[Rfam]
RNA sequence: CACACGAACCCACUCACUCACGCAUGGCAGGAGCGGGGGACCCAGGUAAGUCGCCGGUCCGCGCAGCGGAACGGCUCGGGGUGAAGCCGCCCACGGCAUACAGCACCGUGGGCGGCCGGGCACCUCCCGGCCCGAACCCGACAGCUCACCUCGCAGGCGUCGGAGAGGAAUAUC
Numbered sequence: 001c002a003c004a005c006g007a008a009c010c011c012a013c014u015c016a017c018u019c020a021c022g023c024a025u026g027g028c029a030g031g032a033g034c035g036g037g038g039g040a041c042c043c044a045g046g047u048a049a050g051u052c053g054c055c056g057g058u059c060c061g062c063g064c065a066g067c068g069g070a071a072c073g074g075c076u077c078g079g080g081g082u083g084a085a086g087c088c089g090c091c092c093a094c095g096g097c098a099u100a101c102a103g104c105a106c107c108g109u110g111g112g113c114g115g116c117c118g119g120g121c122a123c124c125u126c127c128c129g130g131c132c133c134g135a136a137c138c139c140g141a142c143a144g145c146u147c148a149c150c151u152c153g154c155a156g157g158c159g160u161c162g163g164a165g166a167g168g169a170a171u172a173u174c
Base pairs, nucleotide, nucleotide: 011159013157014156018032019031033154034153035152036151037150038149043078079139080138081137087115088114089113090112091111092110093109094108095107096106118133119132120131121130
RNA: c-di-AMP riboswitch aptamer (ydaO/yuaA leader)